This 108-nucleotide sequence from Sorghum bicolor belongs to the Rfam family "MIR5565 microRNA precursor family".
Rfam 15.1 lists 3,346 matches to the family in 5 species.
Taxonomically the source falls in Sorghum (Eukaryota, Viridiplantae, Tracheophyta, Euphyllophyta).
Rfam links the family to the GO terms miRNA-mediated post-transcriptional gene silencing and RISC complex.
RNA sequence: GCAUCCGUAUCCAACUCAAUCCAUGUGGGUUGGAGUGGAUUGAGGUGGAAAAUAGUUUAAGUUCCACCCAAUCCACUCCAACACAUGUGGAUUGAGAUAGAUACGACU
Numbered sequence: 001g002c003a004u005c006c007g008u009a010u011c012c013a014a015c016u017c018a019a020u021c022c023a024u025g026u027g028g029g030u031u032g033g034a035g036u037g038g039a040u041u042g043a044g045g046u047g048g049a050a051a052a053u054a055g056u057u058u059a060a061g062u063u064c065c066a067c068c069c070a071a072u073c074c075a076c077u078c079c080a081a082c083a084c085a086u087g088u089g090g091a092u093u094g095a096g097a098u099a100g101a102u103a104c105g106a107c108u
Stems, first nucleotide, its partner, number of pairs: 006105006013098001016095012029082004035076008045067003